This 316-nucleotide RNA sequence from Flavobacteria bacterium BBFL7 belongs to the Rfam family "Bacterial RNase P class A".
The match comes from Rfam's covariance-model search (180 bits).
Its family is annotated with dimeric ribonuclease P complex, tRNA processing and ribonuclease P activity in the Gene Ontology.
The family's RNA type in Rfam is ribozyme.
NCBI's taxonomy places the organism under Bacteria, Pseudomonadati, Bacteroidota, Flavobacteriia.
RNA sequence: GCAGCAGGUCGCUCUAUCGCUUCUUAUGAAGAGGAAAGUCCGGGCACCAUAGGAUAGUAUAACGGUUAAUGGCCGUCAUUACGCUUUCGCGAAAGCGUAAUAGGACAAGUGCAACAGAAAGUAUGUACAGGUAAUGCUGUAGUGAAACCAGGUAAACUCUAUACGGUGAAAUGUUGCGUAUAUCAGAGCUUGAGCGCGAUCCGCGCGAUUCUGAAGGGUAAACAGAUAGAGAUUGCGAGUAAUUGUAAUUCUAGAUAAAUGAUAGAGUGCUUGAGCAAUCAAGUAACAGAAUCCGGCUUAUAGACCUGCUUUUUAU
Numbered sequence: 001g002c003a004g005c006a007g008g009u010c011g012c013u014c015u016a017u018c019g020c021u022u023c024u025u026a027u028g029a030a031g032a033g034g035a036a037a038g039u040c041c042g043g044g045c046a047c048c049a050u051a052g053g054a055u056a057g058u059a060u061a062a063c064g065g066u067u068a069a070u071g072g073c074c075g076u077c078a079u080u081a082c083g084c085u086u087u088c089g090c091g092a093a094a095g096c097g098u099a100a101u102a103g104g105a106c107a108a109g110u111g112c113a114a115c116a117g118a119a120a121g122u123a124u125g126u127a128c129a130g131g132u133a134a135u136g137c138u139g140u141a142g143u144g145a146a147a148c149c150a151g152g153u154a155a156a157c158u159c160u161a162u163a164c165g166g167u168g169a170a171a172u173g174u175u176g177c178g179u180a181u182a183u184c185a186g187a188g189c190u191u192g193a194g195c196g197c198g199a200u201c202c203g204c205g206c207g208a209u210u211c212u213g214a215a216g217g218g219u220a221a222a223c224a225g226a227u228a229g230a231g232a233u234u235g236c237g238a239g240u241a242a243u244u245g246u247a248a249u250u251c252u253a254g255a256u257a258a259a260u261g262a263u264a265g266a267g268u269g270c271u272u273g274a275g276c277a278a279u280c281a282a283g284u285a286a287c288a289g290a291a292u293c294c295g296g297c298u299u300a301u302a303g304a305c306c307u308g309c310u311u312u313u314u315a316u
Stems, first nucleotide, its partner, number of pairs: 001312001003310008011301001012267007020031004036299003040296005045168004052202004057164005062076005077103001078101010104159002109157002111153002126141005172224004183214005194206004231250008